The family of this 93-nucleotide RNA sequence from Papaver nudicaule is "Small nucleolar RNA Z157/R69/R10". The family is grouped with related families in Rfam's "SNORD52 clan". It is annotated as a C/D-box small nucleolar RNA. The base pairs follow the family's consensus structure, which was predicted with PFOLD.
[Rfam]
RNA sequence: GAGCUUGUGGUGAUGGCACUAUUGUGGACUAGAGUUUCUGAUUGGGGCUCUUCACCCUAAUUUGGACACACCCUUGGCUGUCUGAGCAAUAUU
Numbered sequence: 001g002a003g004c005u006u007g008u009g010g011u012g013a014u015g016g017c018a019c020u021a022u023u024g025u026g027g028a029c030u031a032g033a034g035u036u037u038c039u040g041a042u043u044g045g046g047g048c049u050c051u052u053c054a055c056c057c058u059a060a061u062u063u064g065g066a067c068a069c070a071c072c073c074u075u076g077g078c079u080g081u082c083u084g085a086g087c088a089a090u091a092u093u
Stems, first nucleotide, its partner, number of pairs: 001093002005089004036066003042060006